[Rfam]
RNA sequence: GGUCCAGAGAAUCAGCGCCAAGCCCCGGCUCGCUGAUCGGCAACCCUCCAACCGCGGUGGGGUGCUCCGGGUGAUGACCUGGUCGUGUGGAGACACCGCACGGCAAGCGCGGGUC
Number, nucleotide and partner (000 for none) at each position: 001g079002g078003u077004c076005c000006a000007g000008a000009g038010a000011a037012u036013c035014a034015g033016c032017g000018c000019c000020a000021a030022g029023c000024c000025c000026c000027g000028g000029c022030u021031c000032g016033c015034u014035g013036a012037u011038c009039g066040g065041c064042a000043a000044c062045c061046c060047u000048c057049c056050a000051a000052c000053c000054g000055c000056g049057g048058u000059g000060g046061g045062g044063u000064g041065c040066u039067c000068c000069g000070g000071g000072u000073g000074a000075u000076g004077a003078c002079c001080u000081g000082g104083u103084c102085g101086u100087g099088u098089g097090g096091a000092g000093a000094c000095a000096c090097c089098g088099c087100a086101c085102g084103g083104c082105a000106a000107g000108c000109g000110c000111g000112g000113g000114u000115c000

Rfam assigns this 115-nucleotide RNA from Gordonia crocea to the family "SAM (S-adenosyl methionine) riboswitch aptamer". Gene Ontology terms of the family: regulation of gene expression and S-adenosylmethionine metabolic process. NCBI's taxonomy places the organism under Bacteria, Actinomycetota, Actinomycetes, Mycobacteriales, Gordonia. The family's consensus secondary structure is taken from published work. The family is grouped with related families in Rfam's "SAM clan".